Rfam assigns this 98-nucleotide RNA sequence to the family "pemK RNA".

[Rfam]
RNA sequence: AUAAUGAUACUCCCGCACAGCCACAGUCCGAGCGUUAGAAGCGUCGCAGGCAAUGGGUGCGGUUGCAUGAGAACCAUGCAGAGGUGAAAUCCCUGUGG
Numbered sequence: 001a002u003a004a005u006g007a008u009a010c011u012c013c014c015g016c017a018c019a020g021c022c023a024c025a026g027u028c029c030g031a032g033c034g035u036u037a038g039a040a041g042c043g044u045c046g047c048a049g050g051c052a053a054u055g056g057g058u059g060c061g062g063u064u065g066c067a068u069g070a071g072a073a074c075c076a077u078g079c080a081g082a083g084g085u086g087a088a089a090u091c092c093c094u095g096u097g098g
Stems, first nucleotide, its partner, number of pairs: 012095001013062006063081003067077003082094003
Rfam classes the family as a cis-regulatory element.